A member of the RNA family "glmS glucosamine-6-phosphate activated ribozyme aptamer" from Paenibacillus xerothermodurans, 208 nucleotides long. Rfam describes the family as follows. This entry contains a glucosamine-6-phosphate activated ribozyme that is found in the mRNA for GlmS. GlmS is an enzyme that uses fructose-6-phosphate and glutamine to generate glucosamine-6-phosphate. The ribozyme catalyses self cleavage of the glmS mRNA that is thought to regulate GlmS activity. Pairs were carried over by alignment from the consensus structure, which is taken from published work. It scores 96 bits against the family's covariance model. Rfam classes the family as a riboswitch.
RNA sequence: GCUAUUAAACUAGCGCCAGAGCUUGAGAGUGUGUCGCCACUUACCACGUCCUAUCCGGGAUGAUGAACAAAAGAAGGCAACUCGCAAGCUGACGAGGUGAAGGUGUUCGAAACAUUCGGCGGGGACCUUCCGGUAGCAGAUACUACCGUAAAGUUGGAAAGCAAACCAUCCGGGCGACCGGGUGUACAAGAGUCCAACGUGCAUCGAA
Dot-bracket structure: ...................((((((.(.(...................................................).).))))))........(((((...((((.....))))......)))))((((((......))))))....((((((........(((((((....)))))))........))))))..........
Numbered sequence: 001g002c003u004a005u006u007a008a009a010c011u012a013g014c015g016c017c018a019g020a021g022c023u024u025g026a027g028a029g030u031g032u033g034u035c036g037c038c039a040c041u042u043a044c045c046a047c048g049u050c051c052u053a054u055c056c057g058g059g060a061u062g063a064u065g066a067a068c069a070a071a072a073g074a075a076g077g078c079a080a081c082u083c084g085c086a087a088g089c090u091g092a093c094g095a096g097g098u099g100a101a102g103g104u105g106u107u108c109g110a111a112a113c114a115u116u117c118g119g120c121g122g123g124g125a126c127c128u129u130c131c132g133g134u135a136g137c138a139g140a141u142a143c144u145a146c147c148g149u150a151a152a153g154u155u156g157g158a159a160a161g162c163a164a165a166c167c168a169u170c171c172g173g174g175c176g177a178c179c180g181g182g183u184g185u186a187c188a189a190g191a192g193u194c195c196a197a198c199g200u201g202c203a204u205c206g207a208a
Stems, first nucleotide, its partner, number of pairs: 020090006027083001029081001099130005107119004131148006153198006167184007